Rfam assigns this 335-nucleotide part of an RNA from Flavihumibacter petaseus to the family "Bacterial large subunit ribosomal RNA".
The base pairs follow the family's consensus structure, which is taken from published work.
Taxonomically the source falls in Flavihumibacter petaseus (Bacteria, Pseudomonadati, Chitinophagia, Chitinophagaceae).
RNA sequence: CGGGUGAGCCGUGGAGAAGGAACUAGGCAAAUUGACGCUGUAACUUCGGGAUAAAGCGUACCACAGCGAUGUGGUCUCAGUAAAAUGGUUCAACCAACUGUUUAACAAAAACACAGGGCCCUGCAAAAUCGUAAGAUGACGUAUAGAGCCUGAUACCUGCCCGGUGCUGGAAGGUUAAGGAAGGAUGUUCGGCGCAAGCCAAAGCUUCUGACUGAAGCCCCAGUAAACGGCGGCCGUAACUAUAACGGUCCUAAGGUAGCGAAAUUCCUUGUCGGGUAAGUUCCGACCUGCACGAAUGGUCUAAUGAGUUGAACACUGUCUCCUCCACGAGCCCG
Numbered sequence: 001c002g003g004g005u006g007a008g009c010c011g012u013g014g015a016g017a018a019g020g021a022a023c024u025a026g027g028c029a030a031a032u033u034g035a036c037g038c039u040g041u042a043a044c045u046u047c048g049g050g051a052u053a054a055a056g057c058g059u060a061c062c063a064c065a066g067c068g069a070u071g072u073g074g075u076c077u078c079a080g081u082a083a084a085a086u087g088g089u090u091c092a093a094c095c096a097a098c099u100g101u102u103u104a105a106c107a108a109a110a111a112c113a114c115a116g117g118g119c120c121c122u123g124c125a126a127a128a129u130c131g132u133a134a135g136a137u138g139a140c141g142u143a144u145a146g147a148g149c150c151u152g153a154u155a156c157c158u159g160c161c162c163g164g165u166g167c168u169g170g171a172a173g174g175u176u177a178a179g180g181a182a183g184g185a186u187g188u189u190c191g192g193c194g195c196a197a198g199c200c201a202a203a204g205c206u207u208c209u210g211a212c213u214g215a216a217g218c219c220c221c222a223g224u225a226a227a228c229g230g231c232g233g234c235c236g237u238a239a240c241u242a243u244a245a246c247g248g249u250c251c252u253a254a255g256g257u258a259g260c261g262a263a264a265u266u267c268c269u270u271g272u273c274g275g276g277u278a279a280g281u282u283c284c285g286a287c288c289u290g291c292a293c294g295a296a297u298g299g300u301c302u303a304a305u306g307a308g309u310u311g312a313a314c315a316c317u318g319u320c321u322c323c324u325c326c327a328c329g330a331g332c333c334c335g
Base pairs, nucleotide, nucleotide: 001335002334003333004332010329011328012327013326014325015324016323018321019320020319035059036058037057038056039055044049060075061074062073063072064071065070076080088314089313090312091311092310093309094308095306096305099113100112101111116151117150118149119148121146122145123144124141128137129136130135155300156299157298159231160230161229164228165227166224167223168222169221170220173219174218175217179213180212183209184208185207187205188204191200192199232250233249234248235247236246237245251255261288271287272286273285274284275283276282